glmS glucosamine-6-phosphate activated ribozyme aptamer: a 157-nucleotide sequence from Desulfotomaculum nigrificans. Its family is annotated with regulation of gene expression and catalytic activity in the Gene Ontology. This entry contains a glucosamine-6-phosphate activated ribozyme that is found in the mRNA for GlmS. GlmS is an enzyme that uses fructose-6-phosphate and glutamine to generate glucosamine-6-phosphate. The ribozyme catalyses self cleavage of the glmS mRNA that is thought to regulate GlmS activity. A search with the family's covariance model found it, with a score of 107 bits.

RNA sequence: AAAUAAUAUCAAGCGCCAGAACCCUGGUUAGUAUAAGAGGGUUGACGAGGAGAGGGAUGAUCGAAUAUUCGGCGGAUGCCCUCCGGCCGGUCACGGCCGUUAACGCAGUCCAAAACCCGCAGGCAACUGCGGGGCCAAAUGACUGUCGGUGACCAAC
Numbered sequence: 001a002a003a004u005a006a007u008a009u010c011a012a013g014c015g016c017c018a019g020a021a022c023c024c025u026g027g028u029u030a031g032u033a034u035a036a037g038a039g040g041g042u043u044g045a046c047g048a049g050g051a052g053a054g055g056g057a058u059g060a061u062c063g064a065a066u067a068u069u070c071g072g073c074g075g076a077u078g079c080c081c082u083c084c085g086g087c088c089g090g091u092c093a094c095g096g097c098c099g100u101u102a103a104c105g106c107a108g109u110c111c112a113a114a115a116c117c118c119g120c121a122g123g124c125a126a127c128u129g130c131g132g133g134g135c136c137a138a139a140u141g142a143c144u145g146u147c148g149g150u151g152a153c154c155a156a157c
Base pairs, nucleotide, nucleotide: 020043021042022041023040024039025038052083053082054081055080056079061072062071063070064069084099085098086097087096088095089094105146106145107144108143109142116133117132118131119130120129121128122127